[Rfam]
RNA sequence: CGAGAAAAACAGCUUGUUGAUUCCAAGAAAUUGGGGUAGGAAAGUCCGGACAUCACAGAGCAGCAUAAAGGUUAACAACCUUCCGUCGUGAGACGAGGACAAGUGCAACAGAAAGCAAGUACAGUUCGGCUGUAGUGAAACCAGGUAAACUCUAUGCGAUGCAAUGGUAAGUAUAUCGAUGCUUUUUAGAGCAAUCUAAAAAUAGGAGUAGCUCGCUCCGAAAAUCGAGGGGUAACCAGCUCAAGGUUUGCAGUAAUGUAAACCGUAGAUAAAUAACAAGCGUCCCGUUUCAUCGGGAAACAGAAUCCGGCUUAUCGUUUUUCUCGUGGU
Numbered sequence: 001c002g003a004g005a006a007a008a009a010c011a012g013c014u015u016g017u018u019g020a021u022u023c024c025a026a027g028a029a030a031u032u033g034g035g036g037u038a039g040g041a042a043a044g045u046c047c048g049g050a051c052a053u054c055a056c057a058g059a060g061c062a063g064c065a066u067a068a069a070g071g072u073u074a075a076c077a078a079c080c081u082u083c084c085g086u087c088g089u090g091a092g093a094c095g096a097g098g099a100c101a102a103g104u105g106c107a108a109c110a111g112a113a114a115g116c117a118a119g120u121a122c123a124g125u126u127c128g129g130c131u132g133u134a135g136u137g138a139a140a141c142c143a144g145g146u147a148a149a150c151u152c153u154a155u156g157c158g159a160u161g162c163a164a165u166g167g168u169a170a171g172u173a174u175a176u177c178g179a180u181g182c183u184u185u186u187u188a189g190a191g192c193a194a195u196c197u198a199a200a201a202a203u204a205g206g207a208g209u210a211g212c213u214c215g216c217u218c219c220g221a222a223a224a225u226c227g228a229g230g231g232g233u234a235a236c237c238a239g240c241u242c243a244a245g246g247u248u249u250g251c252a253g254u255a256a257u258g259u260a261a262a263c264c265g266u267a268g269a270u271a272a273a274u275a276a277c278a279a280g281c282g283u284c285c286c287g288u289u290u291c292a293u294c295g296g297g298a299a300a301c302a303g304a305a306u307c308c309g310g311c312u313u314a315u316c317g318u319u320u321u322u323c324u325c326g327u328g329g330u
Stems, first nucleotide, its partner, number of pairs: 001326010011315001012281007020037007042313003046310005051161004058214004063157005068082005083097001084095004098152002103150002105146002120134006165238004176228005205219005245264008